[Rfam]
RNA sequence: GUUCAACUUUGCGCAGGCGGAGCUCGACCGCCCGUUUCGGAAAUGAUCCGCUUUAUCAAAAAACAUCGAGAGAUUUGUGGGGUCGAGCCGAUCUGCCGUGCUUUGCAGAUUGCCCCU
Numbered sequence: 001g002u003u004c005a006a007c008u009u010u011g012c013g014c015a016g017g018c019g020g021a022g023c024u025c026g027a028c029c030g031c032c033c034g035u036u037u038c039g040g041a042a043a044u045g046a047u048c049c050g051c052u053u054u055a056u057c058a059a060a061a062a063a064c065a066u067c068g069a070g071a072g073a074u075u076u077g078u079g080g081g082g083u084c085g086a087g088c089c090g091a092u093c094u095g096c097c098g099u100g101c102u103u104u105g106c107a108g109a110u111u112g113c114c115c116c117u
Stems, first nucleotide, its partner, number of pairs: 016032005079116004089112002092109005098103001
RNA: ALIL pseudoknot